[Rfam]
RNA sequence: CAGCCGAUGGUUGUCCCUUGCCAGCCUAGCUUGCGGGACUUUAGAUGGAGUCAGGUUGCAAGUGGCAGUGGUGAGCUCUUCUGUCCAGCAUCAGUAUUCUGACGGUGGCUUUCGACUGGCCAUAUAUGC
Numbered sequence: 001c002a003g004c005c006g007a008u009g010g011u012u013g014u015c016c017c018u019u020g021c022c023a024g025c026c027u028a029g030c031u032u033g034c035g036g037g038a039c040u041u042u043a044g045a046u047g048g049a050g051u052c053a054g055g056u057u058g059c060a061a062g063u064g065g066c067a068g069u070g071g072u073g074a075g076c077u078c079u080u081c082u083g084u085c086c087a088g089c090a091u092c093a094g095u096a097u098u099c100u101g102a103c104g105g106u107g108g109c110u111u112u113c114g115a116c117u118g119g120c121c122a123u124a125u126a127u128g129c
Base pairs, nucleotide, nucleotide: 003059004058006056008054021044023042024041026037027036069122070121071120072119074117075116077115078114083109084108085107089104091102092101093100094099

The family of this 129-nucleotide RNA sequence from Cervus hanglu is "Small nucleolar RNA SNORA56". The family's RNA type in Rfam is H/ACA-box small nucleolar RNA. A search with the family's covariance model found it, with a score of 84 bits.